[Rfam]
A member of the RNA family "Plastid-psbN 5UTR RNA" from Iningainema tapete, 61 nucleotides long. For this family Rfam cites "The primary transcriptome of barley chloroplasts: numerous noncoding RNAs and the dominating role of the plastid-encoded RNA polymerase" (Zhelyazkova et al., Plant Cell, 2012).
Nucleotides: 061
Stems, first nucleotide, its partner, number of pairs: 017045008026036002
Number, partner (000 for none) and nucleotide at each position: 001000a002000a003000a004000a005000a006000c007000a008000c009000c010000c011000a012000u013000g014000a015000g016000g017045g018044g019043g020042g021041u022040a023039g024038u025000a026036c027035c028000c029000c030000a031000u032000c033000c034000u035027g036026g037000c038024g039023c040022u041021a042020c043019u044018u045017u046000a047000c048000c049000a050000u051000a052000u053000u054000c055000c056000g057000a058000g059000u060000u061000c

Pairs were carried over by alignment from the consensus structure, which was predicted with LocARNA. Rfam classes the family as a cis-regulatory element.